[Rfam]
RNA sequence: UUCUUAUCAAGAGUAGGUGGAGGGACUGGCCCGAUGAUACCCGGCAACCGACAUUGUAACCCCCGAGGGGCAAUGCACGGUGCUAAUUCUUGCGGGAGCCGUAUGAAUAGCGGCUUCUGGGAGAUGAGAG
Numbered sequence: 001u002u003c004u005u006a007u008c009a010a011g012a013g014u015a016g017g018u019g020g021a022g023g024g025a026c027u028g029g030c031c032c033g034a035u036g037a038u039a040c041c042c043g044g045c046a047a048c049c050g051a052c053a054u055u056g057u058a059a060c061c062c063c064c065g066a067g068g069g070g071c072a073a074u075g076c077a078c079g080g081u082g083c084u085a086a087u088u089c090u091u092g093c094g095g096g097a098g099c100c101g102u103a104u105g106a107a108u109a110g111c112g113g114c115u116u117c118u119g120g121g122a123g124a125u126g127a128g129a130g
Stems, first nucleotide, its partner, number of pairs: 001130008013042001016041003022032003026092001028090002043084004048080002052075006088122001093119010
The record is a 130-nucleotide RNA from Paenibacillus sp. HGF7, which matches "SAM riboswitch aptamer (S box leader)" in Rfam. NCBI's taxonomy places the organism under Bacteria, Bacillati, Bacillota, Caryophanales, Paenibacillus. The match comes from Rfam's covariance-model search (71 bits).